[Rfam]
RNA: Actinobacteria sRNA Ms_IGR-7
RNA sequence: ACGAGGUGCUCUUUUUGAAUGGGCCGAUGGCAGCGCAGAGAACUCCCAUCCUCCCAUCUCAGAGGGCACCUCACAUUAAUUUCCCGGCCUAACCUGAAGAUUCACGCCGGUGGAUUCAG
Numbered sequence: 001a002c003g004a005g006g007u008g009c010u011c012u013u014u015u016u017g018a019a020u021g022g023g024c025c026g027a028u029g030g031c032a033g034c035g036c037a038g039a040g041a042a043c044u045c046c047c048a049u050c051c052u053c054c055c056a057u058c059u060c061a062g063a064g065g066g067c068a069c070c071u072c073a074c075a076u077u078a079a080u081u082u083c084c085c086g087g088c089c090u091a092a093c094c095u096g097a098a099g100a101u102u103c104a105c106g107c108c109g110g111u112g113g114a115u116u117c118a119g
Stems, first nucleotide, its partner, number of pairs: 003072011015061001017059001019057005026050003030046001032044002099116006